[Rfam]
RNA sequence: UUGGCUGGCUGCUCAGUAGUCAGUGUAGGAUCUGUAUGACUUUACUAAAAACAGCUACAUCUGAUUACUGGGUCACCAGCAACAUUG
Dot-bracket structure: ............((((((.(((((((((...((((...............)))))))))).))).))))))................